[Rfam]
RNA sequence: ACCCUUGCGCUUGGGGCAAUGUUGCAGCCUGUGAGGGUCUACCGAGGCGCACCAAUUAUGGUUGAAAACUAACUUCCAAGCUCCCUUGUUCUGGCCCCUCGGGGUCGAGACAAGAAUUUCUGAAAGCUGAGCCUUAGUUCAG
Numbered sequence: 001a002c003c004c005u006u007g008c009g010c011u012u013g014g015g016g017c018a019a020u021g022u023u024g025c026a027g028c029c030u031g032u033g034a035g036g037g038u039c040u041a042c043c044g045a046g047g048c049g050c051a052c053c054a055a056u057u058a059u060g061g062u063u064g065a066a067a068a069c070u071a072a073c074u075u076c077c078a079a080g081c082u083c084c085c086u087u088g089u090u091c092u093g094g095c096c097c098c099u100c101g102g103g104g105u106c107g108a109g110a111c112a113a114g115a116a117u118u119u120c121u122g123a124a125a126g127c128u129g130a131g132c133c134u135u136a137g138u139u140c141a142g
Base pairs, nucleotide, nucleotide: 021053023051024050025049027048028047029046035043036042085114086113087112088111089110090109092107093106094105095104096103097102127142128141129140130139131138132137
Shown here is a 142-nucleotide sequence from Klebsormidium nitens, a member of the family "U4 spliceosomal RNA". The family's RNA type in Rfam is spliceosomal small nuclear RNA. A search with the family's covariance model found it, with a score of 80 bits. Its family is annotated with U4 snRNP and spliceosomal tri-snRNP complex assembly in the Gene Ontology. The source organism's lineage runs through Eukaryota, Viridiplantae, Streptophyta, Klebsormidiaceae and Klebsormidium.